Nucleotides: 336
Stems, first nucleotide, its partner, number of pairs: 005025009069289005075283002080175006090166005176214002182209004190202004218315001220314005291301004321334005
Number, partner (000 for none) and nucleotide at each position: 001000u002000g003000a004000c005025c006024c007023a008022u009021c010020u011019u012018g013017u014000u015000g016000a017013g018012c019011a020010g021009g022008g023007u024006g025005g026000u027000u028000c029000a030000c031000g032000g033000c034000g035000c036000g037000g038000u039000a040000u041000g042000g043000u044000c045000a046000u047000u048000u049000a050000g051000a052000g053000u054000g055000c056000c057000c058000g059000u060000c061000g062000a063000c064000a065000u066000a067000a068000a069289u070288c071287c072286c073285c074000g075283u076282g077000a078000a079000u080175u081174g082173c083172u084171g085170g086000g087000a088000a089000g090166u091165c092164u093163u094162u095000a096000g097000a098000u099000g100000g101000c102000u103000u104000a105000u106000c107000u108000g109000c110000c111000a112000a113000a114000g115000c116000g117000g118000a119000g120000c121000u122000g123000g124000a125000a126000a127000c128000a129000g130000c131000a132000u133000a134000c135000g136000u137000a138000u139000g140000g141000u142000u143000u144000g145000a146000a147000a148000a149000a150000c151000g152000g153000u154000g155000a156000g157000u158000a159000g160000a161000c162094a163093a164092a165091g166090a167000c168000a169000a170085u171084c172083a173082g174081c175080a176214g177213c178000c179000a180000a181000g182209u183208u184207c185206c186000u187000a188000a189000g190202u191201u192200c193199u194000u195000c196000a197000u198000u199193a200192g201191a202190a203000u204000a205000a206185g207184g208183a209182a210000a211000a212000g213177g214176u215000u216000c217000a218315a219000c220314g221313a222312c223311c224310a225000u226000c227000g228000a229000a230000a231000c232000c233000a234000c235000g236000u237000u238000u239000u240000u241000a242000a243000a244000a245000c246000g247000g248000a249000a250000g251000g252000a253000a254000g255000u256000a257000g258000a259000g260000u261000a262000g263000g264000g265000a266000u267000c268000a269000a270000g271000u272000g273000a274000u275000u276000c277000c278000g279000a280000a281000g282076u283075g284000c285073g286072g287071g288070g289069g290000c291301a292300c293299g294298g295000g296000u297000a298294c299293c300292g301291u302000g303000u304000g305000a306000g307000a308000u309000a310224u311223g312222g313221u314220c315218u316000g317000a318000a319000c320000u321334c322333u323332g324331u325330g326000g327000u328000g329000a330325c331324a332323u333322a334321g335000a336000g
The family of this 336-nucleotide sequence from Metabacillus arenae is "Group I catalytic intron".
Lineage of the source: Bacteria > Bacilli > Caryophanales > Bacillaceae > Metabacillus.
Rfam describes the family as follows. Group I catalytic introns are large self-splicing ribozymes.
Its family is annotated with Group I intron splicing in the Gene Ontology.